[Rfam]
Makes More Granules Regulator RNA (mmgR): a 76-nucleotide RNA from Rugositalea oryzae. The match comes from Rfam's covariance-model search (69 bits). SuhB later renamed mmgR (makes more granules regulator) was a putative non-coding RNA found multiple times in the Agrobacterium tumefaciens genome and related alpha-proteobacteria. Other non-coding RNAs uncovered in the same analysis include: speF, ybhL, metA, and serC.Several studies inSinorhizobium meliloti showed that suhB element is indeed a non-coding RNA:firstly it was detected on Northern blot and called Sm8RNA, secondly in an RNAseq study referred to as SmelC689.The mutant phenotype's (strain lacking the small RNA) cytoplasm contains higher content of polyhydroxybutyrate (PBH)storage granules than wild type strain. The sRNA is required to limit the PBH intracellular accumulation when the nitrogen-fixing Sinorhizobium meliloti is under condition of surplus carbon in relation to nitrogen. It has been renamed to mmgR. Further study confirmed that mmgR fine-tunes the regulation of PBH storage.Northern blot confirmed the expression of the sRNA in other rhizobia species. By type it is a small RNA.
RNA sequence: UCCCGCCGCCCUCCUUGGGCGUUUCCUCCCUAGACUUGGGCCGUCGGCUUGCCGACGGCCCUCUUUCUUUUUUGAG
Numbered sequence: 001u002c003c004c005g006c007c008g009c010c011c012u013c014c015u016u017g018g019g020c021g022u023u024u025c026c027u028c029c030c031u032a033g034a035c036u037u038g039g040g041c042c043g044u045c046g047g048c049u050u051g052c053c054g055a056c057g058g059c060c061c062u063c064u065u066u067c068u069u070u071u072u073u074g075a076g
Stems, first nucleotide, its partner, number of pairs: 008020004038061009